This 92-nucleotide RNA sequence from Penicillium olsonii belongs to the Rfam family "A. fumigatus snoRNA Afu_263".

RNA sequence: CUUUAUGAUGAACCAAAAUAUUUAAAGCAUAGUUCACCUGAGGUCUUCGGGCUAUUGAACGAAAACAUAUUCCAUCUUUCAUUUUUCUGAUA
Numbered sequence: 001c002u003u004u005a006u007g008a009u010g011a012a013c014c015a016a017a018a019u020a021u022u023u024a025a026a027g028c029a030u031a032g033u034u035c036a037c038c039u040g041a042g043g044u045c046u047u048c049g050g051g052c053u054a055u056u057g058a059a060c061g062a063a064a065a066c067a068u069a070u071u072c073c074a075u076c077u078u079u080c081a082u083u084u085u086u087c088u089g090a091u092a
Base pairs, nucleotide, nucleotide: 006018009015010014032060033059034058035057036056042053043052044051045050

Gene Ontology terms of the family: nucleolus and RNA processing. Lineage of the source: Eukaryota > Ascomycota > Pezizomycotina > Aspergillaceae > Penicillium. The match comes from Rfam's covariance-model search (78 bits).